RNA sequence: CUCCCCGAAAUGCAUUUAGGUGCAGCGUCGCGCGUUUCUUACCGGAGGUAGAGCACUGGAUGGGCUAGGGGGCCUACAAGCUUACUGAACUCAACCAAACUCCGAAUGCCGGUAAGUGAGAGCGCGGCAGUGAGACAGUGGGGGAUAAGCUCCAUUGUCGAGAGGGAAACAGCCCAGACCAUCAGCUAAGGUCCCAAAGCGAUUGCUAAGUGGAAAAGGAUGUGGAGUCGCAGAGACAACCAGGAGGUUGGCUUAGAAGCAGCCACCCUUGAAAGAGUGCGUAAUAGCUCACUGGUCAAGUAAUUCCGCGCCGACAAUUUAGCGGGGCUCAAGCAAUCCACCGAAGCUAUGGGAUUCACAUAAUAGGUAGGCCUUCGUGGUCCAGCCGUGUGGAUCGGUAGGGGAGCGUCGUGUCGCGAGCGAAGCGGCGGGGUAACCCAGCCGUGGAUGCGACACGAGUGAGAAU
Dot-bracket structure: ((((((....(((((....))))).((((((((..(.((((((((.....(((...(((.((((...((((((......)))).))...)))).)))..)).).....))))))))....)))))))).)...((((((((((......))))))))))....(((......)))...((((.(((...(((......(.((((((...........((..(((((((.((.......(((((.(((..(((.........)))..)))(...)(...((......)).).)))))...)).))))))).))....................))))))))))...)))))))((((((((............................))))))))....))))))(.((((((((((......((((((((....))).)))))...))))))))))..).....
Numbered sequence: 001c002u003c004c005c006c007g008a009a010a011u012g013c014a015u016u017u018a019g020g021u022g023c024a025g026c027g028u029c030g031c032g033c034g035u036u037u038c039u040u041a042c043c044g045g046a047g048g049u050a051g052a053g054c055a056c057u058g059g060a061u062g063g064g065c066u067a068g069g070g071g072g073c074c075u076a077c078a079a080g081c082u083u084a085c086u087g088a089a090c091u092c093a094a095c096c097a098a099a100c101u102c103c104g105a106a107u108g109c110c111g112g113u114a115a116g117u118g119a120g121a122g123c124g125c126g127g128c129a130g131u132g133a134g135a136c137a138g139u140g141g142g143g144g145a146u147a148a149g150c151u152c153c154a155u156u157g158u159c160g161a162g163a164g165g166g167a168a169a170c171a172g173c174c175c176a177g178a179c180c181a182u183c184a185g186c187u188a189a190g191g192u193c194c195c196a197a198a199g200c201g202a203u204u205g206c207u208a209a210g211u212g213g214a215a216a217a218g219g220a221u222g223u224g225g226a227g228u229c230g231c232a233g234a235g236a237c238a239a240c241c242a243g244g245a246g247g248u249u250g251g252c253u254u255a256g257a258a259g260c261a262g263c264c265a266c267c268c269u270u271g272a273a274a275g276a277g278u279g280c281g282u283a284a285u286a287g288c289u290c291a292c293u294g295g296u297c298a299a300g301u302a303a304u305u306c307c308g309c310g311c312c313g314a315c316a317a318u319u320u321a322g323c324g325g326g327g328c329u330c331a332a333g334c335a336a337u338c339c340a341c342c343g344a345a346g347c348u349a350u351g352g353g354a355u356u357c358a359c360a361u362a363a364u365a366g367g368u369a370g371g372c373c374u375u376c377g378u379g380g381u382c383c384a385g386c387c388g389u390g391u392g393g394a395u396c397g398g399u400a401g402g403g404g405a406g407c408g409u410c411g412u413g414u415c416g417c418g419a420g421c422g423a424a425g426c427g428g429c430g431g432g433g434u435a436a437c438c439c440a441g442c443c444g445u446g447g448a449u450g451c452g453a454c455a456c457g458a459g460u461g462a463g464a465a466u
Stems, first nucleotide, its partner, number of pairs: 001406006011024005026130001027128007036121001038116008051103001052101002057097003061093004068086002070083004134159010164175003179352004184348003190342003199339001201338006218312002222309007230301002239296005245269003250264003270274001275290001279288002353396008407461001409458010425445005430439003
Rfam assigns this 466-nucleotide part of an RNA from Aeromicrobium flavum to the family "Bacterial large subunit ribosomal RNA". It scores 2846 bits against the family's covariance model.